RNA sequence: CCUUGUGUUCCAUCACAUUGUGAUACAUGCAAUUCUAGUAACGGAAUUGUGCGAAGCUAUCCGGACAAUAUAGCCUGUAAAGGGAUUCUGCGAAGUAUCUCUGUUUCACACCAACGUCAGGUGCGGGGGAGU
Numbered sequence: 001c002c003u004u005g006u007g008u009u010c011c012a013u014c015a016c017a018u019u020g021u022g023a024u025a026c027a028u029g030c031a032a033u034u035c036u037a038g039u040a041a042c043g044g045a046a047u048u049g050u051g052c053g054a055a056g057c058u059a060u061c062c063g064g065a066c067a068a069u070a071u072a073g074c075c076u077g078u079a080a081a082g083g084g085a086u087u088c089u090g091c092g093a094a095g096u097a098u099c100u101c102u103g104u105u106u107c108a109c110a111c112c113a114a115c116g117u118c119a120g121g122u123g124c125g126g127g128g129g130a131g132u
Stems, first nucleotide, its partner, number of pairs: 004017004022061004026053001028051009081102004088095002107125001109123004
This 132-nucleotide sequence from Cyclobacterium lianum belongs to the Rfam family "Group II catalytic intron D1-D4-7". For this family Rfam cites "The ins and outs of group II introns" (Bonen and Vogel, Trends Genet, 2001). The match comes from Rfam's covariance-model search (61 bits). Pairs were carried over by alignment from the consensus structure. About the family: Group II introns are found in rRNA, tRNA and mRNA of organelles in fungi, plants and protists, and also in mRNA in bacteria.